The family of this 153-nucleotide RNA from Lentibacillus amyloliquefaciens is "Ribosomal protein L10 leader". On this family, see Zengel and Lindahl, Prog Nucleic Acid Res Mol Biol 1994: "Diverse mechanisms for regulating ribosomal protein synthesis in Escherichia coli".
RNA sequence: AAAAAUAAAUACGUUAUACCGUAGACAGCAGGUGCAGAUGAUGCUUAAUUUCCUGCCGAGGUGUUUUGAUUGAUGAUACCAGAUUCUUUAAAAGCGGGUUGUCAUUUGUCAUAAAGCCUCCAUGUCUCUAUUGGGGGCUUUAUUAAUAGAUAC
Dot-bracket structure: ...........................(((((.(((.....))).......)))))...........................................................(((((((.........)))))))...............
Numbered sequence: 001a002a003a004a005a006u007a008a009a010u011a012c013g014u015u016a017u018a019c020c021g022u023a024g025a026c027a028g029c030a031g032g033u034g035c036a037g038a039u040g041a042u043g044c045u046u047a048a049u050u051u052c053c054u055g056c057c058g059a060g061g062u063g064u065u066u067u068g069a070u071u072g073a074u075g076a077u078a079c080c081a082g083a084u085u086c087u088u089u090a091a092a093a094g095c096g097g098g099u100u101g102u103c104a105u106u107u108g109u110c111a112u113a114a115a116g117c118c119u120c121c122a123u124g125u126c127u128c129u130a131u132u133g134g135g136g137g138c139u140u141u142a143u144u145a146a147u148a149g150a151u152a153c
Stems, first nucleotide, its partner, number of pairs: 028056005034044003116138007

This family is a putative r-protein leader autoregulatory structure found in B. subtilis and other low-GC Gram-positive bacteria. Pairs were carried over by alignment from the consensus structure, which was predicted with CMfinder.